[Rfam]
RNA sequence: GACUGUUAGUCGGGGAGCCUUGUGCUGAGACCACUCUGUGGGACCCGUUGAACCUGAUCCAUUUAGCAAUGGCGUAGGGAACUAGCUGAAUAUCAGA
Numbered sequence: 001g002a003c004u005g006u007u008a009g010u011c012g013g014g015g016a017g018c019c020u021u022g023u024g025c026u027g028a029g030a031c032c033a034c035u036c037u038g039u040g041g042g043a044c045c046c047g048u049u050g051a052a053c054c055u056g057a058u059c060c061a062u063u064u065a066g067c068a069a070u071g072g073c074g075u076a077g078g079g080a081a082c083u084a085g086c087u088g089a090a091u092a093u094c095a096g097a
Stems, first nucleotide, its partner, number of pairs: 006085005011047004017025002032040003053078004059072004
The family of this 97-nucleotide sequence from Photobacterium ganghwense is "TPP riboswitch aptamer (THI element)". The literature on the family includes a 2002 paper in J Biol Chem by Rodionov et al., "Comparative genomics of thiamin biosynthesis in procaryotes. New genes and regulatory mechanisms". NCBI's taxonomy places the organism under Bacteria, Pseudomonadati, Pseudomonadota, Vibrionales, Photobacterium. Rfam's curators write: Vitamin B(1) in its active form thiamin pyrophosphate (TPP) is an essential coenzyme that is synthesised by coupling of pyrimidine and thiazole moieties in bacteria. A search with the family's covariance model found it, with a score of 61 bits.